The family of this 85-nucleotide RNA from Anaeromicrobium sediminis is "Clostridiales-2 RNA".

RNA sequence: AAAAAGAAGGGGUUGUAGGGGAAAAGUUCCCCUGCCUGUUCUGAAGGAAGGUGCUCAGAUUGCGAUAGCAAUCGUCGAAGGAAAC
Number, nucleotide and partner (000 for none) at each position: 001a000002a000003a000004a000005a000006g000007a000008a000009g000010g000011g000012g000013u000014u000015g035016u034017a033018g032019g031020g030021g029022a028023a000024a000025a000026g000027u000028u022029c021030c020031c019032c018033u017034g016035c015036c000037u000038g000039u000040u000041c000042u000043g000044a000045a000046g000047g000048a000049a000050g000051g000052u000053g000054c000055u000056c000057a000058g073059a072060u071061u070062g069063c000064g000065a000066u000067a000068g000069c062070a061071a060072u059073c058074g000075u000076c000077g000078a000079a000080g000081g000082a000083a000084a000085c000
A search with the family's covariance model found it, with a score of 76 bits.